[Rfam]
RNA sequence: GGCGCCGGACGACCGGUGGCGGAUCCUUCGUACCCAGGACGACCUGG
Numbered sequence: 001g002g003c004g005c006c007g008g009a010c011g012a013c014c015g016g017u018g019g020c021g022g023a024u025c026c027u028u029c030g031u032a033c034c035c036a037g038g039a040c041g042a043c044c045u046g047g
Base pairs, nucleotide, nucleotide: 001020003018004017005016006015007014008013034047035046036045037044038043
RNA: Guanidine-II riboswitch aptamer (mini-ykkC)
Organism: Micromonospora craniellae